[Rfam]
Shown here is a 292-nucleotide RNA sequence from Sclerotinia nivalis, a member of the family "A. fumigatus sRNA Afu_309". Taxonomically the source falls in Sclerotinia (Eukaryota, sordariomyceta, Leotiomycetes, Sclerotiniaceae).
RNA sequence: UUUCUUACAAAAACAUGAGAUUUGUGUCCAGCGUCCCUUCAUCAAAACUGCUCGCAGUGAUGGUGUAAGGUUGUAUGCUGAGGCAGUUCGAUCGUCUAUGGAGCCAUCAACCUACCAAGGUAAUCUAUGAUGUCAAUAUCCGAUCGACAAAUCUCAGAUUAAUCAGUCCUUAUGAAACCUGAGUCGCUUCGGCUGAUUCGGUAGAUGAGUGUACUGAAGACGUCAGAUUCCAAAUCUGUUUGCCUAGGCUGUUAGCCUUUGAGGUUGCGGAAUAACCCUCUCGUCUACAUUU
Numbered sequence: 001u002u003u004c005u006u007a008c009a010a011a012a013a014c015a016u017g018a019g020a021u022u023u024g025u026g027u028c029c030a031g032c033g034u035c036c037c038u039u040c041a042u043c044a045a046a047a048c049u050g051c052u053c054g055c056a057g058u059g060a061u062g063g064u065g066u067a068a069g070g071u072u073g074u075a076u077g078c079u080g081a082g083g084c085a086g087u088u089c090g091a092u093c094g095u096c097u098a099u100g101g102a103g104c105c106a107u108c109a110a111c112c113u114a115c116c117a118a119g120g121u122a123a124u125c126u127a128u129g130a131u132g133u134c135a136a137u138a139u140c141c142g143a144u145c146g147a148c149a150a151a152u153c154u155c156a157g158a159u160u161a162a163u164c165a166g167u168c169c170u171u172a173u174g175a176a177a178c179c180u181g182a183g184u185c186g187c188u189u190c191g192g193c194u195g196a197u198u199c200g201g202u203a204g205a206u207g208a209g210u211g212u213a214c215u216g217a218a219g220a221c222g223u224c225a226g227a228u229u230c231c232a233a234a235u236c237u238g239u240u241u242g243c244c245u246a247g248g249c250u251g252u253u254a255g256c257c258u259u260u261g262a263g264g265u266u267g268c269g270g271a272a273u274a275a276c277c278c279u280c281u282c283g284u285c286u287a288c289a290u291u292u
Stems, first nucleotide, its partner, number of pairs: 018154008026084003029080003033076002036073001037070003041066001043063001044061001047058004092146001094144003099135003103131001105129003166214002177202002180200006186193002219285004225279002235271005242265003247257004